[Rfam]
RNA sequence: GGAGGUGCGUGCCAGUGAUUGCACAGUUUGAACAUCGAUCGCUUGAAUUCUUUAGCAGGCAGAUCUGCUCAGUCACGUGCAGUCACAAAGGUCGAUUCAGAAAUCAAUGGACCUGCCCGAUGCCUUGUCGCACGGGUUAGUCAUCCAAUGGUUACUUGAACGUCCGCAAUUUUCCGAAUUUGGGGUUUCACGGAUGGGUAUAUUAAAUUUAUAAACACCUCCAAAAAGGCACUGCAGACUGGCAGUUUGCCAUUUUUUGA
Dot-bracket structure: (((((((.......(((((........(((..((..((((((((............)))).))))))..))).........))))).................................................................................................................................))))))).....((((((((......)))))..))).........

The record is a 260-nucleotide RNA sequence from Psylliodes chrysocephalus, which matches "Arthropod 7SK RNA" in Rfam. The match comes from Rfam's covariance-model search (107 bits). It is annotated as a non-coding RNA gene. The family's consensus secondary structure is taken from published work. Lineage of the source: Eukaryota > Bilateria > Panarthropoda > Cucujiformia > Psylliodes.